[Rfam]
RNA: S15-Flavobacteria ribosomal protein leader
RNA sequence: UAUAUUUGCACGCUUGAAAGAAAAACUUUCAAGCUACAUAACAAUCAUUUACAAUAAUAUUAGAAUG
Numbered sequence: 001u002a003u004a005u006u007u008g009c010a011c012g013c014u015u016g017a018a019a020g021a022a023a024a025a026c027u028u029u030c031a032a033g034c035u036a037c038a039u040a041a042c043a044a045u046c047a048u049u050u051a052c053a054a055u056a057a058u059a060u061u062a063g064a065a066u067g
Base pairs, nucleotide, nucleotide: 014032015031016030017029018028019027